[Rfam]
The record is a 233-nucleotide RNA from Candidatus Parepulonipiscium sp. PG-Nuni2H_MBin01, which matches "Group II catalytic intron D1-D4-5" in Rfam. A reference for the family is Bonen and Vogel (2001), "The ins and outs of group II introns", Trends Genet. NCBI's taxonomy places the organism under Bacteria, Bacillati, Bacillota, Lachnospirales, Candidatus Parepulonipiscium.

RNA sequence: AACAACUAAUAAUUCGAUUAGUCAAAUGAUGGGGUAACGCCUUGAAGGGCUAACUAUGAUACUCCGAAUAGCGUUUAUCUGAGUAAACAGAUAAGGGUUAUAAGCUCGGUGAAGUCGGCUGAGAACAGACCGUAAACAAUGAUGAUAGUGAAGUGAAAUUCAAUAACUUUUCUCUUUGACACGAAAUGCGAACCAGAGGUGGUCGAGUCUGUGAUAGGUCGGUAGUCUAUAAA
Numbered sequence: 001a002a003c004a005a006c007u008a009a010u011a012a013u014u015c016g017a018u019u020a021g022u023c024a025a026a027u028g029a030u031g032g033g034g035u036a037a038c039g040c041c042u043u044g045a046a047g048g049g050c051u052a053a054c055u056a057u058g059a060u061a062c063u064c065c066g067a068a069u070a071g072c073g074u075u076u077a078u079c080u081g082a083g084u085a086a087a088c089a090g091a092u093a094a095g096g097g098u099u100a101u102a103a104g105c106u107c108g109g110u111g112a113a114g115u116c117g118g119c120u121g122a123g124a125a126c127a128g129a130c131c132g133u134a135a136a137c138a139a140u141g142a143u144g145a146u147a148g149u150g151a152a153g154u155g156a157a158a159u160u161c162a163a164u165a166a167c168u169u170u171u172c173u174c175u176u177u178g179a180c181a182c183g184a185a186a187u188g189c190g191a192a193c194c195a196g197a198g199g200u201g202g203u204c205g206a207g208u209c210u211g212u213g214a215u216a217g218g219u220c221g222g223u224a225g226u227c228u229a230u231a232a233a
Base pairs, nucleotide, nucleotide: 018053019052020051021050022049023048031043032042033041034040054225055224056223057222064109065108066107067106068101069100070099071098072097074095075094076093077092078091079090080089081088116221117220118219119218120217125212126211127210128209129208130207131183132182133181139177187206189205190204192203193202194201195200